[Rfam]
RNA sequence: UAGCUUUCUCGAGGGAGGGAUGAGCAAUCCCGACCGGCGGUAAGAGUCCGCAAUCCGAUUCAAUAUCGGGGGAUCCGGUGCAAUUCCGGAACCGACAGUGUAAGUCUGGAAGGGAGAGAGAGCAU
Number, nucleotide and partner (000 for none) at each position: 001u000002a000003g123004c122005u121006u120007u119008c118009u117010c116011g000012a000013g000014g000015g000016a000017g031018g030019g029020a000021u000022g000023a000024g000025c000026a000027a000028u000029c019030c018031c017032g000033a105034c104035c094036g093037g051038c050039g049040g048041u000042a000043a000044g000045a000046g092047u091048c040049c039050g038051c037052a000053a000054u070055c069056c068057g000058a000059u000060u000061c000062a000063a000064u000065a000066u000067c000068g056069g055070g054071g000072g000073a000074u090075c089076c088077g087078g086079u000080g000081c000082a000083a000084u000085u000086c078087c077088g076089g075090a074091a047092c046093c036094g035095a000096c108097a107098g106099u000100g000101u000102a000103a000104g034105u033106c098107u097108g096109g000110a000111a000112g000113g000114g000115a000116g010117a009118g008119a007120g006121a005122g004123c003124a000125u000
The family of this 125-nucleotide RNA from spirochete symbiont of Stewartia floridana is "FMN riboswitch aptamer (RFN element)". Pairs were carried over by alignment from the consensus structure, which is taken from published work. NCBI's taxonomy places the organism under Bacteria, Pseudomonadati, Spirochaetota, Spirochaetia, Spirochaetales.